[Rfam]
Nucleotides: 152
Stems, first nucleotide, its partner, number of pairs: 003073007011020001013018001024049001026047001030042003034038001086143005098130002101127001105123001106121001
Number, partner (000 for none) and nucleotide at each position: 001000a002000a003073g004072c005071g006070a007069a008068g009067g010000c011020c012000c013018c014000a015000g016000c017000g018013g019000a020011g021000g022000g023000g024049g025000u026047g027000g028000a029000u030042c031041u032040c033000c034038a035000g036000a037000g038034u039000u040032g041031a042030g043000a044000c045000c046000u047026c048000u049024c050000c051000a052000a053000c054000g055000a056000u057000u058000a059000u060000a061000c062000c063000g064000a065000g066000c067009c068008c069007u070006u071005c072004g073003c074000a075000u076000a077000g078000g079000a080000a081000a082000u083000u084000c085000g086143g087142c088141c089140g090139u091000u092000u093000c094000g095000c096000a097000g098130g099129c100000g101127c102000a103000u104000g105123a106121a107000c108000g109000a110000u111000a112000u113000u114000u115000a116000u117000g118000g119000u120000u121106u122000u123105u124000a125000u126000g127101g128000c129099g130098u131000c132000u133000g134000a135000a136000c137000c138000c139090a140089c141088g142087g143086c144000u145000a146000c147000a148000a149000u150000g151000c152000a
Rfam assigns this 152-nucleotide RNA sequence from Cocos nucifera to the family "Small nucleolar RNA snoR145". The literature on the family includes a 2009 paper in Nucleic Acids Res by Chen and Wu, "Mining small RNA sequencing data: a new approach to identify small nucleolar RNAs in Arabidopsis". Gene Ontology terms of the family: nucleolus and RNA processing. Pairs were carried over by alignment from the consensus structure, which was predicted with mfold. It scores 61 bits against the family's covariance model. The family's RNA type in Rfam is H/ACA-box small nucleolar RNA.